[Rfam]
Rfam assigns this 83-nucleotide sequence from Aquibium oceanicum to the family "Glycine riboswitch aptamer".
The organism belongs to Aquibium, within Bacteria.
For this family Rfam cites "A glycine-dependent riboswitch that uses cooperative binding to control gene expression" (Mandal et al., Science, 2004).
RNA sequence: CACCGGUUUGCGGGAGAGAGCCGAAAGGCCGCCGAAGGGGAAAUCGCCCGAAAUCUCUCAGGCAAAAGAACCGUAAGCCGGAA
Numbered sequence: 001c002a003c004c005g006g007u008u009u010g011c012g013g014g015a016g017a018g019a020g021c022c023g024a025a026a027g028g029c030c031g032c033c034g035a036a037g038g039g040g041a042a043a044u045c046g047c048c049c050g051a052a053a054u055c056u057c058u059c060a061g062g063c064a065a066a067a068g069a070a071c072c073g074u075a076a077g078c079c080g081g082a083a
Stems, first nucleotide, its partner, number of pairs: 006078008020029003031063003034059002038057003044051002